[Rfam]
RNA sequence: CCGUGCUAGACGGGGAGGUAGCGGUGCCCUGUAACUCGCAAUCCGCUAUAGCGAGGUUGAAUUCCUGUUAGAGGUUUUGUUGAUGUGAGGCUUGGUAUUCGUCUUUGGUGUUGACGGCUGGGUCCUUCGCAAUGAAUACCUAUGAAUCUGGUCAGGUCCGGAAGGAAGCAGCCAUAAGUAGGGUUUUUCAUGUGCCGGAGGGAAGCCUGGUCUGAGCUGUAAGACGAAGGUGCCGCUCGGAUCACAAUAAUCAAUAACAGGUGCGCGG
Numbered sequence: 001c002c003g004u005g006c007u008a009g010a011c012g013g014g015g016a017g018g019u020a021g022c023g024g025u026g027c028c029c030u031g032u033a034a035c036u037c038g039c040a041a042u043c044c045g046c047u048a049u050a051g052c053g054a055g056g057u058u059g060a061a062u063u064c065c066u067g068u069u070a071g072a073g074g075u076u077u078u079g080u081u082g083a084u085g086u087g088a089g090g091c092u093u094g095g096u097a098u099u100c101g102u103c104u105u106u107g108g109u110g111u112u113g114a115c116g117g118c119u120g121g122g123u124c125c126u127u128c129g130c131a132a133u134g135a136a137u138a139c140c141u142a143u144g145a146a147u148c149u150g151g152u153c154a155g156g157u158c159c160g161g162a163a164g165g166a167a168g169c170a171g172c173c174a175u176a177a178g179u180a181g182g183g184u185u186u187u188u189c190a191u192g193u194g195c196c197g198g199a200g201g202g203a204a205g206c207c208u209g210g211u212c213u214g215a216g217c218u219g220u221a222a223g224a225c226g227a228a229g230g231u232g233c234c235g236c237u238c239g240g241a242u243c244a245c246a247a248u249a250a251u252c253a254a255u256a257a258c259a260g261g262u263g264c265g266c267g268g
Stems, first nucleotide, its partner, number of pairs: 001268006009058003012030004017025001019023001035055005064261007073252004081244004086239004093232002098228005105222002107218003116212008124201006130192002133190004139182005149174004157166003
Description: Rfam assigns this 268-nucleotide sequence from Paenibacillus popilliae to the family "Bacterial large signal recognition particle RNA". Rfam links the family to the GO terms SRP-dependent cotranslational protein targeting to membrane, signal sequence recognition and signal recognition particle, plasma membrane targeting. Lineage of the source: Bacteria > Bacillota > Caryophanales > Paenibacillus > Paenibacillus popilliae. By type it is a non-coding RNA gene.